[Rfam]
Nucleotides: 328
Stems, first nucleotide, its partner, number of pairs: 040059004063202005073195007088180003092177003098114005115162007203218003208229001210227001213225002290307004297324006
Number, partner (000 for none) and nucleotide at each position: 001000g002000c003000c004000c005000u006000u007000g008000c009000g010000c011000c012000u013000g014000u015000g016000u017000c018000g019000c020000a021000c022000c023000c024000c025000g026000c027000c028000u029000a030000u031000g032000u033000a034000g035000g036000g037000g038000g039000u040059g041058c042057c043056g044000g045000g046000a047000g048000u049000u050000u051000u052000c053000u054000c055000g056043c057042g058041g059040c060000u061000a062000u063202g064201g065200c066199a067198a068000u069000a070000a071000a072000c073195g074194g075193g076192g077191u078190g079189u080000g081000g082000c083000a084000u085000a086000g087000g088180c089179g090178u091000a092177g093176u094175g095000g096000a097000c098114c099113c100112g101111g102110g103000g104000g105000c106000g107000g108000u109000a110102c111101c112100c113099g114098g115162c116161g117160u118159c119158u120157c121156c122000a123000c124000c125000a126000a127000a128000a129000a130000u131000c132000c133000g134000g135000g136000c137000c138000g139000g140000a141000a142000c143000g144000g145000u146000c147000a148000g149000g150000a151000u152000c153000a154000c155000u156121g157120g158119g159118g160117a161116c162115g163000a164000a165000a166000c167000a168000g169000g170000c171000u172000c173000g174000a175094c176093a177092c178090g179089c180088g181000c182000a183000g184000u185000a186000a187000a188000g189079a190078c191077a192076u193075c194074u195073u196000u197000u198067u199066u200065g201064c202063c203218c204217g205216g206000c207000a208229u209000u210227g211000u212000a213225c214224c215000a216205c217204c218203g219000u220000u221000a222000u223000c224214g225213g226000g227210c228000u229208a230000a231000u232000u233000u234000u235000a236000c237000a238000a239000g240000u241000g242000c243000c244000a245000a246000u247000g248000a249000u250000a251000a252000c253000u254000c255000u256000g257000a258000g259000g260000u261000g262000c263000u264000c265000g266000c267000u268000g269000u270000c271000g272000c273000u274000g275000c276000a277000u278000a279000a280000g281000c282000g283000a284000u285000a286000a287000g288000c289000g290307c291306g292305g293304u294000u295000c296000g297324g298323g299322a300321g301320g302319g303000c304293a305292c306291c307290g308000g309000g310000c311000a312000a313000c314000a315000g316000a317000a318000g319302c320301c321300c322299u323298c324297c325000c326000a327000c328000u